[Rfam]
Source information:
The record is a 116-nucleotide sequence from Thermoanaerobacterium sp. RBIITD, which matches "Ribosomal protein L20 leader" in Rfam. Taxonomically the source falls in Thermoanaerobacterium (Bacteria, Bacillati, Thermoanaerobacterales, Thermoanaerobacteraceae). This family is a putative r-protein leader autoregulatory structure found in B. subtilis and other low-GC Gram-positive bacteria. It is located in the 5' untranslated regions of mRNAs encoding initiation factor 3 followed by ribosomal proteins L35 and L20 (infC-rpmI-rplT). A Rho-independent transcription terminator structure that is probably involved in regulation is included at the 3' end. It scores 60 bits against the family's covariance model. Rfam classes the family as a cis-regulatory leader.
RNA sequence: GUGUUUAAGUAGAAGCCCCCGCUUCUCACCUUUCACCGAUGGUGUCAGGUUAACAAUUGAAAUGUUUUAUAAACAUCGAUACUGAAGCGGGCUUAUACUCGCUUAUUUUUUUUGAA
Numbered sequence: 001g002u003g004u005u006u007a008a009g010u011a012g013a014a015g016c017c018c019c020c021g022c023u024u025c026u027c028a029c030c031u032u033u034c035a036c037c038g039a040u041g042g043u044g045u046c047a048g049g050u051u052a053a054c055a056a057u058u059g060a061a062a063u064g065u066u067u068u069a070u071a072a073a074c075a076u077c078g079a080u081a082c083u084g085a086a087g088c089g090g091g092c093u094u095a096u097a098c099u100c101g102c103u104u105a106u107u108u109u110u111u112u113u114g115a116a
Stems, first nucleotide, its partner, number of pairs: 011026006028050003034044004086103006